[Rfam]
RNA sequence: CCCUUGGAGCGUUAUAUCAAACAAAAGUAAUUAGUUGAUUUAUUUUAACGAUGAAAUUGGACGCGUUAAAUAGGGAA
Number, nucleotide and partner (000 for none) at each position: 001c075002c074003c073004u072005u000006g000007g000008a000009g064010c063011g062012u061013u060014a000015u000016a000017u000018c000019a000020a000021a000022c059023a058024a057025a000026a000027g000028u000029a000030a052031u051032u050033a000034g049035u048036u047037g046038a045039u000040u000041u000042a000043u000044u000045u038046u037047a036048a035049c034050g032051a031052u030053g000054a000055a000056a000057u024058u023059g022060g013061a012062c011063g010064c009065g000066u000067u000068a000069a000070a000071u000072a004073g003074g002075g001076a000077a000

The record is a 77-nucleotide sequence, which matches "RAGATH-18 RNA" in Rfam. Rfam classes the family as a small RNA. It is one of the family's seed sequences.